RNA: radC RNA
Organism: Tolumonas auensis
RNA sequence: AAGCUGUCGGCAUGCGUCGCUGACCUCGUCAGCACCAUGCCAGCAGCCAGGGUUUCAGGCUGCCGCGGGAUUCCCCUCCCGUGCGACCCACACCAGUCCGCCAUCGCAUCGAGUCCGCGGACGCGCGCCCUCACGGCGCCGAUGC
Numbered sequence: 001a002a003g004c005u006g007u008c009g010g011c012a013u014g015c016g017u018c019g020c021u022g023a024c025c026u027c028g029u030c031a032g033c034a035c036c037a038u039g040c041c042a043g044c045a046g047c048c049a050g051g052g053u054u055u056c057a058g059g060c061u062g063c064c065g066c067g068g069g070a071u072u073c074c075c076c077u078c079c080c081g082u083g084c085g086a087c088c089c090a091c092a093c094c095a096g097u098c099c100g101c102c103a104u105c106g107c108a109u110c111g112a113g114u115c116c117g118c119g120g121a122c123g124c125g126c127g128c129c130c131u132c133a134c135g136g137c138g139c140c141g142a143u144g145c
Stems, first nucleotide, its partner, number of pairs: 011039004019033006043063006051088003064083007117145003125139005